Shown here is a 164-nucleotide part of an RNA, a member of the family "Bacterial large subunit ribosomal RNA".
Pairs were carried over by alignment from the consensus structure, which is taken from published work.
The family is grouped with related families in Rfam's "LSU clan".
Rfam links the family to the GO terms ribosome and structural constituent of ribosome.

[Rfam]
RNA sequence: GAUAACAGGUUAAUUGGCCGCGAGAGUACACAUUGUCCGGCCAGUUUGACACCUCGAUGUCGACUCACCCUAUCCUCCGGGCGCAGGAUCUUGGAAGGGUUCGGCUGUUCGCCGAUUAAAAGGGUACGCGAGUUGGGUUUAAUACGGCGUGAGCCAGUAUGGUC
Numbered sequence: 001g002a003u004a005a006c007a008g009g010u011u012a013a014u015u016g017g018c019c020g021c022g023a024g025a026g027u028a029c030a031c032a033u034u035g036u037c038c039g040g041c042c043a044g045u046u047u048g049a050c051a052c053c054u055c056g057a058u059g060u061c062g063a064c065u066c067a068c069c070c071u072a073u074c075c076u077c078c079g080g081g082c083g084c085a086g087g088a089u090c091u092u093g094g095a096a097g098g099g100u101u102c103g104g105c106u107g108u109u110c111g112c113c114g115a116u117u118a119a120a121a122g123g124g125u126a127c128g129c130g131a132g133u134u135g136g137g138u139u140u141a142a143u144a145c146g147g148c149g150u151g152a153g154c155c156a157g158u159a160u161g162g163u164c
Stems, first nucleotide, its partner, number of pairs: 009050003013047001014044007024034002061136001062134004066128001067125005074099002077094005101115005142160004146155003